Rfam assigns this 78-nucleotide RNA sequence to the family "S15-Methanomicrobia ribosomal protein leader". Its Rfam clan is "Ribosomal Protein S15 Leader clan".
RNA sequence: AGCACUGAGAUUAGUGCUGACACUGGUAAGUCCGACCUGCCUCUAUCAUGGGGCAUCGCCGUAAUGGCUUGGGAUUAC
Numbered sequence: 001a002g003c004a005c006u007g008a009g010a011u012u013a014g015u016g017c018u019g020a021c022a023c024u025g026g027u028a029a030g031u032c033c034g035a036c037c038u039g040c041c042u043c044u045a046u047c048a049u050g051g052g053g054c055a056u057c058g059c060c061g062u063a064a065u066g067g068c069u070u071g072g073g074a075u076u077a078c
Stems, first nucleotide, its partner, number of pairs: 001018006026078004032073002038055006058068003

It is one of the family's seed sequences.